[Rfam]
RNA sequence: CGGUGAUCAGGGCCCACCCGUGCGAAAGCCGGGGUCGCAAAGCCACCGGUCUACCGCCUGAAGAGGCCAUGACAGCGGGGUUGCCACU
Numbered sequence: 001c002g003g004u005g006a007u008c009a010g011g012g013c014c015c016a017c018c019c020g021u022g023c024g025a026a027a028g029c030c031g032g033g034g035u036c037g038c039a040a041a042g043c044c045a046c047c048g049g050u051c052u053a054c055c056g057c058c059u060g061a062a063g064a065g066g067c068c069a070u071g072a073c074a075g076c077g078g079g080g081u082u083g084c085c086a087c088u
Base pairs, nucleotide, nucleotide: 012038013037017033018032019031020030022029023028041082042081043080044079046078047077048076049073050072051071056067057066058065059064
RNA: c-di-GMP-I riboswitch aptamer